[Rfam]
RNA sequence: AGUCAAGAGUCUUUGGCACCGUUUCGGUGAGCGGCUUUCUUUUGCCUGAAAAAAGGUGAGAGAAAAUG
Number, nucleotide and partner (000 for none) at each position: 001a000002g000003u000004c000005a000006a000007g000008a000009g000010u063011c062012u061013u060014u059015g000016g000017c058018a057019c056020c055021g000022u054023u053024u052025c000026g000027g000028u000029g047030a000031g045032c044033g043034g042035c000036u000037u000038u000039c000040u000041u000042u034043u033044g032045c031046c000047u029048g000049a000050a000051a000052a024053a023054a022055g020056g019057u018058g017059a014060g013061a012062g011063a010064a000065a000066a000067u000068g000
Shown here is a 68-nucleotide RNA from Rhizobium sp. Leaf306, a member of the family "S-element". Rfam classes the family as a cis-regulatory element. The organism belongs to Rhizobium, within Bacteria. Gene Ontology terms of the family: translation regulator activity and mRNA transcription.